The family of this 103-nucleotide sequence from Aggregatibacter segnis is "TPP riboswitch aptamer (THI element)". Lineage of the source: Bacteria > Pseudomonadota > Pasteurellaceae > Aggregatibacter > Aggregatibacter segnis. Vitamin B(1) in its active form thiamin pyrophosphate (TPP) is an essential coenzyme that is synthesised by coupling of pyrimidine and thiazole moieties in bacteria.

RNA sequence: GCGCGUUAGUCGGGGUGCUCCGUUGGCUUAAAUAACGGAGCUGAGAAAUACCCGUGAACCUGAUACAGUUAGCACUGACGUAGGAAACUAAUGCACUUCACUC
Numbered sequence: 001g002c003g004c005g006u007u008a009g010u011c012g013g014g015g016u017g018c019u020c021c022g023u024u025g026g027c028u029u030a031a032a033u034a035a036c037g038g039a040g041c042u043g044a045g046a047a048a049u050a051c052c053c054g055u056g057a058a059c060c061u062g063a064u065a066c067a068g069u070u071a072g073c074a075c076u077g078a079c080g081u082a083g084g085a086a087a088c089u090a091a092u093g094c095a096c097u098u099c100a101c102u103c
Stems, first nucleotide, its partner, number of pairs: 006091005011054004016048001017041009059084004066077003